Rfam assigns this 397-nucleotide RNA sequence from Indibacter alkaliphilus to the family "Bacterial RNase P class A". The family is grouped with related families in Rfam's "RNaseP clan".
RNA sequence: AGUGCAAGCCGUCUUGUCGCUGUUCCGCUUUGCGGGAGGGAGGAAAGUCCGGGCAACAAAGAGCGCCAUACUUCCUAACGGGAAGGGGUCAAGCUGGGAACGGCUUGGUCACAGAAAGUGCCACAGAAAAUAUACCGCCCCGAUCCGAUCGGGGUAAGGGUGAAAAGGUGGGGUAAGAGCCCACCGCUUCUACAGUGAUGUAGAGGGCACGGCAAACCUUAUGGGUUGAAAGAUCAAAUAGGUCCCGCACCGGAUUCAGUUUCGGAAAAGGCUGCUCGUCUUUCUGCGGGAUGGGUAGAUUGAUGGAUCCCGGUUGUGAAGCCGGGACUAGAUAAAUGACAAGAAACCCAUUUGUAGAAAUGGGGAACAGAACCCGGCUUAUAGGCUUGCACCUUUA
Numbered sequence: 001a002g003u004g005c006a007a008g009c010c011g012u013c014u015u016g017u018c019g020c021u022g023u024u025c026c027g028c029u030u031u032g033c034g035g036g037a038g039g040g041a042g043g044a045a046a047g048u049c050c051g052g053g054c055a056a057c058a059a060a061g062a063g064c065g066c067c068a069u070a071c072u073u074c075c076u077a078a079c080g081g082g083a084a085g086g087g088g089u090c091a092a093g094c095u096g097g098g099a100a101c102g103g104c105u106u107g108g109u110c111a112c113a114g115a116a117a118g119u120g121c122c123a124c125a126g127a128a129a130a131u132a133u134a135c136c137g138c139c140c141c142g143a144u145c146c147g148a149u150c151g152g153g154g155u156a157a158g159g160g161u162g163a164a165a166a167g168g169u170g171g172g173g174u175a176a177g178a179g180c181c182c183a184c185c186g187c188u189u190c191u192a193c194a195g196u197g198a199u200g201u202a203g204a205g206g207g208c209a210c211g212g213c214a215a216a217c218c219u220u221a222u223g224g225g226u227u228g229a230a231a232g233a234u235c236a237a238a239u240a241g242g243u244c245c246c247g248c249a250c251c252g253g254a255u256u257c258a259g260u261u262u263c264g265g266a267a268a269a270g271g272c273u274g275c276u277c278g279u280c281u282u283u284c285u286g287c288g289g290g291a292u293g294g295g296u297a298g299a300u301u302g303a304u305g306g307a308u309c310c311c312g313g314u315u316g317u318g319a320a321g322c323c324g325g326g327a328c329u330a331g332a333u334a335a336a337u338g339a340c341a342a343g344a345a346a347c348c349c350a351u352u353u354g355u356a357g358a359a360a361u362g363g364g365g366a367a368c369a370g371a372a373c374c375c376g377g378c379u380u381a382u383a384g385g386c387u388u389g390c391a392c393c394u395u396u397a
Base pairs, nucleotide, nucleotide: 002392003391004390005389006388007387008386009385010384011382012344013343014342015341016340017339018338020040021039023037024036025035026034027033028032045380046379047378049377050376051375052374053373054228055227056226057225061277062276063275064274066224067223068222069221070220071085072084073083074082075081086112087110088109089108090107091106092105093104094103095102096101113219114218118217119216120213121212122211135159136158137155138154139153140152141151142150143149144148167185168184169183170182171181172180186208187206188205189204190203191202192201193200194199232301233300234299235298242292243291244290245289246288247287268282269281270280271279272278308327309326310325311324312323313322314321315320